RNA sequence: CACUUUCCGAAGAGCGGCUGAUGACUGCGUCACUCAGCCCACCGAAGGAGCAAGCGCCCCCCAGCGGUGCGUGAAUCUCUCAGGUCCCAUGACGGAAGGGGUACG
Numbered sequence: 001c002a003c004u005u006u007c008c009g010a011a012g013a014g015c016g017g018c019u020g021a022u023g024a025c026u027g028c029g030u031c032a033c034u035c036a037g038c039c040c041a042c043c044g045a046a047g048g049a050g051c052a053a054g055c056g057c058c059c060c061c062c063a064g065c066g067g068u069g070c071g072u073g074a075a076u077c078u079c080u081c082a083g084g085u086c087c088c089a090u091g092a093c094g095g096a097a098g099g100g101g102u103a104c105g
Stems, first nucleotide, its partner, number of pairs: 003099007016039006041085003044081002048079003054072004
RNA: Glycine riboswitch aptamer
Organism: Halovibrio variabilis